[Rfam]
RNA sequence: CCUGCCGAAGUUUCCCUCAGGAUAGCAGAAACUCGCAUCAGUUUUAUGAGGUAAAGCGAAUGAUUAGAGGCCUUGGGGACGUAACGUCCUUAACCUAUUCUCAAACUUUAAAUAUGUAAGAAGCCCUUGUUGCUUAGUUGAACGUGGGCAUGCGAAUGAGAGUUUCUAGUGGGCCAUUUUUGGUAAGCAGAACUGGCGAUGCGGGAUGAACCGAUCGCGAGGUUAAGGUGCCGGAGUACACGCUCAUCAGACACCACAAAAGGUGUUAGUUCAUCUAGACAGCAGGACGGUGGCCAUGGAAGUCGGAACCCGCUAAGGAGUGUGUAACAACUCACCUGCCGAAUGAACUAGCCCUGAAAAUGGAUGGCGCUCAAGCGUGUCACCCAUACCUCGCCGUCGACGUUGGAGCGACGCGUCGACGAGUAGGCAGGCGUGGGGGUUUUGUGUCGAAGCCUAGGCAGUGAUGCUGGGUGAAACGGCCCCUAGUGCAGAU
Numbered sequence: 001c002c003u004g005c006c007g008a009a010g011u012u013u014c015c016c017u018c019a020g021g022a023u024a025g026c027a028g029a030a031a032c033u034c035g036c037a038u039c040a041g042u043u044u045u046a047u048g049a050g051g052u053a054a055a056g057c058g059a060a061u062g063a064u065u066a067g068a069g070g071c072c073u074u075g076g077g078g079a080c081g082u083a084a085c086g087u088c089c090u091u092a093a094c095c096u097a098u099u100c101u102c103a104a105a106c107u108u109u110a111a112a113u114a115u116g117u118a119a120g121a122a123g124c125c126c127u128u129g130u131u132g133c134u135u136a137g138u139u140g141a142a143c144g145u146g147g148g149c150a151u152g153c154g155a156a157u158g159a160g161a162g163u164u165u166c167u168a169g170u171g172g173g174c175c176a177u178u179u180u181u182g183g184u185a186a187g188c189a190g191a192a193c194u195g196g197c198g199a200u201g202c203g204g205g206a207u208g209a210a211c212c213g214a215u216c217g218c219g220a221g222g223u224u225a226a227g228g229u230g231c232c233g234g235a236g237u238a239c240a241c242g243c244u245c246a247u248c249a250g251a252c253a254c255c256a257c258a259a260a261a262g263g264u265g266u267u268a269g270u271u272c273a274u275c276u277a278g279a280c281a282g283c284a285g286g287a288c289g290g291u292g293g294c295c296a297u298g299g300a301a302g303u304c305g306g307a308a309c310c311c312g313c314u315a316a317g318g319a320g321u322g323u324g325u326a327a328c329a330a331c332u333c334a335c336c337u338g339c340c341g342a343a344u345g346a347a348c349u350a351g352c353c354c355u356g357a358a359a360a361u362g363g364a365u366g367g368c369g370c371u372c373a374a375g376c377g378u379g380u381c382a383c384c385c386a387u388a389c390c391u392c393g394c395c396g397u398c399g400a401c402g403u404u405g406g407a408g409c410g411a412c413g414c415g416u417c418g419a420c421g422a423g424u425a426g427g428c429a430g431g432c433g434u435g436g437g438g439g440u441u442u443u444g445u446g447u448c449g450a451a452g453c454c455u456a457g458g459c460a461g462u463g464a465u466g467c468u469g470g471g472u473g474a475a476a477c478g479g480c481c482c483c484u485a486g487u488g489c490a491g492a493u
Stems, first nucleotide, its partner, number of pairs: 001431006011024001013022003027167007042121007054109001055107002061103003066098001068096003073093006080086001123149004128144004173197004178192005202213003217394005223388001227384003236381001238380001241377003261355003265352010282339005288312003294306002313317001318333001322331002395421009432488001434485008444477002452472002458467003
This 493-nucleotide part of an RNA from Acaromyces ingoldii belongs to the Rfam family "Eukaryotic large subunit ribosomal RNA". Gene Ontology terms of the family: structural constituent of ribosome and ribosome.